[Rfam]
The record is an 86-nucleotide RNA from Providencia heimbachae, which matches "Group II catalytic intron D1-D4-1" in Rfam. The source organism's lineage runs through Bacteria, Pseudomonadati, Gammaproteobacteria, Enterobacterales and Providencia heimbachae. About the family: Group II introns are found in rRNA, tRNA and mRNA of organelles in fungi, plants and protists, and also in mRNA in bacteria.
RNA sequence: CUAUGAAUAUUGUGAAGUAUUCAAAUGCAAUGGCAGAAGUCAGCAGACGCCGUAGUAGUGCUAAGUAAACCGAUAGCACGAAGGGC
Numbered sequence: 001c002u003a004u005g006a007a008u009a010u011u012g013u014g015a016a017g018u019a020u021u022c023a024a025a026u027g028c029a030a031u032g033g034c035a036g037a038a039g040u041c042a043g044c045a046g047a048c049g050c051c052g053u054a055g056u057a058g059u060g061c062u063a064a065g066u067a068a069a070c071c072g073a074u075a076g077c078a079c080g081a082a083g084g085g086c
Stems, first nucleotide, its partner, number of pairs: 001027001004023008039048003049086003058079006
On this family, see Chu et al., EMBO J 2001: "Control of branch-site choice by a group II intron". Its family is annotated with Group II intron splicing in the Gene Ontology.